The record is a 161-nucleotide sequence from Capsicum baccatum, which matches "U1 spliceosomal RNA" in Rfam. U1 is a small nuclear RNA (snRNA) component of the spliceosome (involved in pre-mRNA splicing). By type it is a spliceosomal small nuclear RNA. Pairs were carried over by alignment from the consensus structure, which is taken from published work.
RNA sequence: AUACUUACCUGGACGGGGUCAAUGGGCGAUCAAAAAGGUCUAUGGCCUAGGUUGGUGACCUUCAUUGCACUUUGGAGGGGUGCCAGCCUAAGGUCGGCCCAAGUGGCCGAGCCUACGUCAUAGUUUGUGGCAGCGGGGGCCUGCGUUCGCGCAGCCUCUAC
Numbered sequence: 001a002u003a004c005u006u007a008c009c010u011g012g013a014c015g016g017g018g019u020c021a022a023u024g025g026g027c028g029a030u031c032a033a034a035a036a037g038g039u040c041u042a043u044g045g046c047c048u049a050g051g052u053u054g055g056u057g058a059c060c061u062u063c064a065u066u067g068c069a070c071u072u073u074g075g076a077g078g079g080g081u082g083c084c085a086g087c088c089u090a091a092g093g094u095c096g097g098c099c100c101a102a103g104u105g106g107c108c109g110a111g112c113c114u115a116c117g118u119c120a121u122a123g124u125u126u127g128u129g130g131c132a133g134c135g136g137g138g139g140c141c142u143g144c145g146u147u148c149g150c151g152c153a154g155c156c157u158c159u160a161c
Base pairs, nucleotide, nucleotide: 012119013118014117015116016048017047018046019045020044021043023042024041025040026039027038049089050088051087053086055083056082057081059079060078061077062075063074091114092113093112094110095109096108098106099105135159136158137157138156142153143152144151145150